[Rfam]
RNA sequence: AGCCUUCUGUAUCCGUUCUGAGAUUGUGUCACAUACCAGACCACAAGAGCUGAUGAAACUUCCAAGAUAAGUGAAGUG
Numbered sequence: 001a002g003c004c005u006u007c008u009g010u011a012u013c014c015g016u017u018c019u020g021a022g023a024u025u026g027u028g029u030c031a032c033a034u035a036c037c038a039g040a041c042c043a044c045a046a047g048a049g050c051u052g053a054u055g056a057a058a059c060u061u062c063c064a065a066g067a068u069a070a071g072u073g074a075a076g077u078g
Base pairs, nucleotide, nucleotide: 002077003076005074006073008071010069011068012067013066016064020061021060022059024058025057027055028054029053030052
RNA: mir-3492 microRNA precursor family